[Rfam]
RNA sequence: CCUUUGGAGUGUCAUAUCAAACGAAAGUAGCCAUGCCUAGCAUCCUUUGAAAGAAAGGAUGUAUAAAUGGUAAACCAAAUCGGACACGAUGAAUAAGGAA
Numbered sequence: 001c002c003u004u005u006g007g008a009g010u011g012u013c014a015u016a017u018c019a020a021a022c023g024a025a026a027g028u029a030g031c032c033a034u035g036c037c038u039a040g041c042a043u044c045c046u047u048u049g050a051a052a053g054a055a056a057g058g059a060u061g062u063a064u065a066a067a068u069g070g071u072a073a074a075c076c077a078a079a080u081c082g083g084a085c086a087c088g089a090u091g092a093a094u095a096a097g098g099a100a
Stems, first nucleotide, its partner, number of pairs: 001098004009087005022082003030075001036070002

The family of this 100-nucleotide RNA is "RAGATH-18 RNA". Actinobacteria, Firmicutes, Fusobacteria, Thermotogae (1 example). The family's RNA type in Rfam is small RNA.